A member of the RNA family "mir-33 microRNA precursor family" from Capitella teleta, 68 nucleotides long. It is one of the family's seed sequences. Gene Ontology terms of the family: gene silencing by miRNA and RISC complex. A reference for the family is Ahn et al. (2010), "MicroRNA transcriptome in the newborn mouse ovaries determined by massive parallel sequencing", Mol Hum Reprod.
[Rfam]
RNA sequence: CAUUGGUGCAUUGUAGUUGCAUUGCAUGGAAGUUCAACCGGUGCAGUGCUCCUGCAGUGCAAUCAAUG
Numbered sequence: 001c002a003u004u005g006g007u008g009c010a011u012u013g014u015a016g017u018u019g020c021a022u023u024g025c026a027u028g029g030a031a032g033u034u035c036a037a038c039c040g041g042u043g044c045a046g047u048g049c050u051c052c053u054g055c056a057g058u059g060c061a062a063u064c065a066a067u068g
Base pairs, nucleotide, nucleotide: 001068002067003066004065006064007061008060009059010058011057012056013055014054015053016052019049021047022046023045024044025043026042027041
The organism belongs to Capitella, within Eukaryota. Rfam 15.1 lists 1,467 matches to the family in 815 species.